[Rfam]
RNA sequence: UGCCCGCUGUCCCUUAUGGCUUUUUAUUCCUAUCUGACUGUAGUGAGUUUCAUAUAGGGAUGGAAGCCAUGCAGGACUGAGGGCC
Numbered sequence: 001u002g003c004c005c006g007c008u009g010u011c012c013c014u015u016a017u018g019g020c021u022u023u024u025u026a027u028u029c030c031u032a033u034c035u036g037a038c039u040g041u042a043g044u045g046a047g048u049u050u051c052a053u054a055u056a057g058g059g060a061u062g063g064a065a066g067c068c069a070u071g072c073a074g075g076a077c078u079g080a081g082g083g084c085c
Stems, first nucleotide, its partner, number of pairs: 002084004007079001009077004015071009026061008035052003
This 85-nucleotide sequence from Astyanax mexicanus belongs to the Rfam family "mir-135 microRNA precursor family". On this family, see Lagos-Quintana et al., Curr Biol 2002: "Identification of tissue-specific microRNAs from mouse". Rfam links the family to the GO terms RISC complex and gene silencing by miRNA. Pairs were carried over by alignment from the consensus structure, which was predicted with PFOLD.